[Rfam]
RNA sequence: UGGGUCGAUGAUGGGUAUUGGGGGAGGUAUCUGAGUCAAUAACUUUGAUUAAGUGCUCUGUGUAACUUUGAGGUCCAC
Number, nucleotide and partner (000 for none) at each position: 001u000002g076003g075004g074005u073006c072007g000008a000009u000010g000011a000012u000013g000014g000015g000016u000017a000018u000019u000020g000021g000022g000023g000024g000025a000026g000027g000028u000029a000030u000031c000032u000033g000034a000035g000036u000037c000038a000039a000040u000041a000042a000043c000044u000045u000046u000047g000048a000049u000050u000051a000052a000053g000054u000055g000056c000057u000058c000059u000060g000061u000062g000063u000064a000065a000066c000067u000068u000069u000070g000071a000072g006073g005074u004075c003076c002077a000078c000

Rfam assigns this 78-nucleotide RNA from Tursiops truncatus to the family "Small nucleolar RNA SNORD113/SNORD114 family". Clan: SNORD74 clan. A reference for the family is Cavaille et al. (2002), "Identification of tandemly-repeated C/D snoRNA genes at the imprinted human 14q32 domain reminiscent of those at the Prader-Willi/Angelman syndrome region", Hum Mol Genet. It scores 50 bits against the family's covariance model.